[Rfam]
A member of the RNA family "Small nucleolar RNA U105B" from Mustela putorius, 80 nucleotides long. A reference for the family is Yang et al. (2006), "snoSeeker: an advanced computational package for screening of guide and orphan snoRNA genes in the human genome", Nucleic Acids Res. NCBI's taxonomy places the organism under Eukaryota, Craniata, Sarcopterygii, Mustela, Mustela putorius. Rfam classes the family as a C/D-box small nucleolar RNA.
RNA sequence: UCACGUGCGGCUGAUGACCACGCUGCGGCUGAGGCGCUGUGAUUGCUCAGUCUCAAAGUAAACGCUCUGACGCACUGUGG
Dot-bracket structure: ....((((((..(....)..).......(((((............)))))....................))))).....